The family of this 220-nucleotide RNA sequence from Paenibacillus contaminans is "c-di-AMP riboswitch aptamer (ydaO/yuaA leader)".
RNA sequence: UAGCGUAACAAGCCGAAUUUCUUUGUGAAAACGGGGGAACCAUGUAAGAAAGAGCCAGAUGCGCAAUAUUGCGGGAAUUCUGGCUUGGGGUGAAUUUUGCUUUCAUGAGCGCGUUCCAGAAGUCGACUUAGGCAGUUAGGGACAGGCCGUGAAGAGCAGAUAGGGUGACUGGUGCACCCGAAUCCGACAGCUAACCUCGUAGGCUUCGCAUCCAGGAUAC
Numbered sequence: 001u002a003g004c005g006u007a008a009c010a011a012g013c014c015g016a017a018u019u020u021c022u023u024u025g026u027g028a029a030a031a032c033g034g035g036g037g038a039a040c041c042a043u044g045u046a047a048g049a050a051a052g053a054g055c056c057a058g059a060u061g062c063g064c065a066a067u068a069u070u071g072c073g074g075g076a077a078u079u080c081u082g083g084c085u086u087g088g089g090g091u092g093a094a095u096u097u098u099g100c101u102u103u104c105a106u107g108a109g110c111g112c113g114u115u116c117c118a119g120a121a122g123u124c125g126a127c128u129u130a131g132g133c134a135g136u137u138a139g140g141g142a143c144a145g146g147c148c149g150u151g152a153a154g155a156g157c158a159g160a161u162a163g164g165g166u167g168a169c170u171g172g173u174g175c176a177c178c179c180g181a182a183u184c185c186g187a188c189a190g191c192u193a194a195c196c197u198c199g200u201a202g203g204c205u206u207c208g209c210a211u212c213c214a215g216g217a218u219a220c
Base pairs, nucleotide, nucleotide: 011205012204013203014202018030019029020028031200032199033198034197035196036195041087042086088185089184090183096160097159098158099157100156101155102154103153163179164178165177166176
Taxonomically the source falls in Paenibacillus (Bacteria, Bacillati, Bacillota, Paenibacillaceae).